[Rfam]
RNA sequence: AGGGUUCCGGUUCCCGCUCUCCUUCAUCACAGGGCGACCCGGCGACC
Numbered sequence: 001a002g003g004g005u006u007c008c009g010g011u012u013c014c015c016g017c018u019c020u021c022c023u024u025c026a027u028c029a030c031a032g033g034g035c036g037a038c039c040c041g042g043c044g045a046c047c
Base pairs, nucleotide, nucleotide: 003047004046005045007042008041009040010039015036016035017034018033019032020031

This 47-nucleotide RNA from Actinoplanes siamensis belongs to the Rfam family "L31-Actinobacteria ribosomal protein leader".